[Rfam]
RNA sequence: UGGUGAAUUACUGAGCAUUUACUCCUUUGGCAGGUGGCUUAUUCUCAAAUAUUUUCACUGGGAGUGUAUGUUAUAUAGGCUAACUGCCAAGGGAGAUUUGCUCGGCAAUUCACCG
Numbered sequence: 001u002g003g004u005g006a007a008u009u010a011c012u013g014a015g016c017a018u019u020u021a022c023u024c025c026u027u028u029g030g031c032a033g034g035u036g037g038c039u040u041a042u043u044c045u046c047a048a049a050u051a052u053u054u055u056c057a058c059u060g061g062g063a064g065u066g067u068a069u070g071u072u073a074u075a076u077a078g079g080c081u082a083a084c085u086g087c088c089a090a091g092g093g094a095g096a097u098u099u100g101c102u103c104g105g106c107a108a109u110u111c112a113c114c115g
Stems, first nucleotide, its partner, number of pairs: 005111005011105007022095004028089006035082002
The record is a 115-nucleotide RNA sequence from Corymbia citriodora, which matches "mir-399 microRNA precursor family" in Rfam. Gene Ontology terms of the family: miRNA-mediated post-transcriptional gene silencing and RISC complex. The family's consensus secondary structure was predicted with PFOLD.